[Rfam]
RNA: MIR821 microRNA precursor family
Organism: Oryza meridionalis
RNA sequence: GAUUUCAACUGAAAAAGUCAUCAAUAACAAAGUUGUAUAACUCAUCAAUAUCUCUAACUUUUAUUUUGGUCAUUUCUUCAUUCGAUAAAGUGAUAGUAAUAUUAUUCAUAAAUUUUACAUAUCUCCCAUAUAGUUUCAUAAAUUAUACGAGAGAUAUGUAAAAUUUGUGAACAAUGUUAGUAUCACUUUGUUGGAUGAAGAAAUGACCAAAAUAAAAGUUAUAGAAAUUGAUUAGUUAUACAACUUUGUUGUUGAUAACUUUUUCAGUUGAAAUC
Numbered sequence: 001g002a003u004u005u006c007a008a009c010u011g012a013a014a015a016a017g018u019c020a021u022c023a024a025u026a027a028c029a030a031a032g033u034u035g036u037a038u039a040a041c042u043c044a045u046c047a048a049u050a051u052c053u054c055u056a057a058c059u060u061u062u063a064u065u066u067u068g069g070u071c072a073u074u075u076c077u078u079c080a081u082u083c084g085a086u087a088a089a090g091u092g093a094u095a096g097u098a099a100u101a102u103u104a105u106u107c108a109u110a111a112a113u114u115u116u117a118c119a120u121a122u123c124u125c126c127c128a129u130a131u132a133g134u135u136u137c138a139u140a141a142a143u144u145a146u147a148c149g150a151g152a153g154a155u156a157u158g159u160a161a162a163a164u165u166u167g168u169g170a171a172c173a174a175u176g177u178u179a180g181u182a183u184c185a186c187u188u189u190g191u192u193g194g195a196u197g198a199a200g201a202a203a204u205g206a207c208c209a210a211a212a213u214a215a216a217a218g219u220u221a222u223a224g225a226a227a228u229u230g231a232u233u234a235g236u237u238a239u240a241c242a243a244c245u246u247u248g249u250u251g252u253u254g255a256u257a258a259c260u261u262u263u264u265c266a267g268u269u270g271a272a273a274u275c
Stems, first nucleotide, its partner, number of pairs: 014262005020256002023253002026250002030246013044232006051225003055221013069207007077199005083193010094182002097179003101175003105171008114162002117159006131145006